The record is a 326-nucleotide RNA from Kazachstania africana, which matches "RNase MRP" in Rfam. By type it is a ribozyme. From the family's description: RNase MRP is an enzymatically active ribonucleoprotein with two distinct roles in eukaryotes.
RNA sequence: AUAGCCAGAGAAUCGUCACUGAUCGAAGCUUACAUAAGGAGUGUUUACACUCAAGUAUGCUUUGGGUUGAAAGUCUCCCACCUGUCAAUGUGCGGAAACGUAGUGAGAUUUAAAAAUUUAAAUUGUUUAAAUCAACUCACUAAGAAUUGGGAAGAUUCUCUUCUCUUUUCUUCACUACCUGGGACUAUCUUUGUCCCGGUGCUUUUCGGUACUGGAGUCUUUAUAGACUCUAAACCAUAGUUAUGACGAUUGCUUUGUUUUCAUUGUUUUUCUCAUGGGAAAACACGAGAACAAGGUAACCCAAUGGAGCUUACUAUUCUUGGUUC
Numbered sequence: 001a002u003a004g005c006c007a008g009a010g011a012a013u014c015g016u017c018a019c020u021g022a023u024c025g026a027a028g029c030u031u032a033c034a035u036a037a038g039g040a041g042u043g044u045u046u047a048c049a050c051u052c053a054a055g056u057a058u059g060c061u062u063u064g065g066g067u068u069g070a071a072a073g074u075c076u077c078c079c080a081c082c083u084g085u086c087a088a089u090g091u092g093c094g095g096a097a098a099c100g101u102a103g104u105g106a107g108a109u110u111u112a113a114a115a116a117u118u119u120a121a122a123u124u125g126u127u128u129a130a131a132u133c134a135a136c137u138c139a140c141u142a143a144g145a146a147u148u149g150g151g152a153a154g155a156u157u158c159u160c161u162u163c164u165c166u167u168u169u170c171u172u173c174a175c176u177a178c179c180u181g182g183g184a185c186u187a188u189c190u191u192u193g194u195c196c197c198g199g200u201g202c203u204u205u206u207c208g209g210u211a212c213u214g215g216a217g218u219c220u221u222u223a224u225a226g227a228c229u230c231u232a233a234a235c236c237a238u239a240g241u242u243a244u245g246a247c248g249a250u251u252g253c254u255u256u257g258u259u260u261u262c263a264u265u266g267u268u269u270u271u272c273u274c275a276u277g278g279g280a281a282a283a284c285a286c287g288a289g290a291a292c293a294a295g296g297u298a299a300c301c302c303a304a305u306g307g308a309g310c311u312u313a314c315u316a317u318u319c320u321u322g323g324u325u326c
Base pairs, nucleotide, nucleotide: 003325004324005323006322007320008319009318012250013249014248015247016246017245023065024064025063026062027061028060029059039052040051041050042049043048071312072311073310075309076308077307078306091102092101093100094099116123117122129221130220137215138214139213141211142210144207145206146205147198149196150195181191182190183189184188253296254295255294256293257292258291259290260289261288262287